A member of the RNA family "SAM riboswitch aptamer (S box leader)" from Galactobacter valiniphilus, 90 nucleotides long.
RNA sequence: GCUCCAUCCAGAGCGGCCGAGAGACCUGGCUCGUUGACGCCGCAGCAACCAUCGCUCUUGCGAGGGUGCUUCCGCCGGGACCGAUGGAAU
Numbered sequence: 001g002c003u004c005c006a007u008c009c010a011g012a013g014c015g016g017c018c019g020a021g022a023g024a025c026c027u028g029g030c031u032c033g034u035u036g037a038c039g040c041c042g043c044a045g046c047a048a049c050c051a052u053c054g055c056u057c058u059u060g061c062g063a064g065g066g067u068g069c070u071u072c073c074g075c076c077g078g079g080a081c082c083g084a085u086g087g088a089a090u
Base pairs, nucleotide, nucleotide: 001090003088004087005086006085007084008083013043014042015041016040017039021032022031023030026078027077028076029075044070045069046068047067049066050065053062054061074082